[Rfam]
RNA sequence: GUGAGGUGAUGAUGAGGUUUAUCCAUUCUCUGAGUGCAGUGGUGCUGCCCUCCUGCAGCACCCAGAUUCCUGUUCUAGGCUCUGAGUGUUGUGCAGCCUCCAGAGACCCUCCAGCCUCGCAGUGUCUUACUGGGAGCUGCUGUGGUGUGUGGCAGGCUGCCUGCAGGAGGGCAGUGGAGCUGGCAGGGUUGGAGCCUCUUUUUGUGGGGCUCCAUCCCCACUGAGACGAGGGACAAUGUCUGAUCAC
Numbered sequence: 001g002u003g004a005g006g007u008g009a010u011g012a013u014g015a016g017g018u019u020u021a022u023c024c025a026u027u028c029u030c031u032g033a034g035u036g037c038a039g040u041g042g043u044g045c046u047g048c049c050c051u052c053c054u055g056c057a058g059c060a061c062c063c064a065g066a067u068u069c070c071u072g073u074u075c076u077a078g079g080c081u082c083u084g085a086g087u088g089u090u091g092u093g094c095a096g097c098c099u100c101c102a103g104a105g106a107c108c109c110u111c112c113a114g115c116c117u118c119g120c121a122g123u124g125u126c127u128u129a130c131u132g133g134g135a136g137c138u139g140c141u142g143u144g145g146u147g148u149g150u151g152g153c154a155g156g157c158u159g160c161c162u163g164c165a166g167g168a169g170g171g172c173a174g175u176g177g178a179g180c181u182g183g184c185a186g187g188g189u190u191g192g193a194g195c196c197u198c199u200u201u202u203u204g205u206g207g208g209g210c211u212c213c214a215u216c217c218c219c220a221c222u223g224a225g226a227c228g229a230g231g232g233a234c235a236a237u238g239u240c241u242g243a244u245c246a247c
Stems, first nucleotide, its partner, number of pairs: 010246004017239002020236001023232002026230003030225002034221002039184002042181001043179001045177004049171002051168007059088003063084003069079003093160007106146002112139004117134002120132005186218003190214004195209004
Small nucleolar RNA SNORD17: a 247-nucleotide RNA from Colius striatus.
Rfam links the family to the GO terms nucleolus and RNA processing.
About the family: The snoRNA HBI-43 belongs to the C/D family of snoRNAs, guiding 2'O-ribose methylation at position U3797 of the 28S rRNA. Pseudouridylation in position U3797 is predicted to be guided by the H/ACA snoRNA ACA48.
It scores 128 bits against the family's covariance model.
The source organism's lineage runs through Eukaryota, Opisthokonta, Bilateria, Dinosauria and Colius.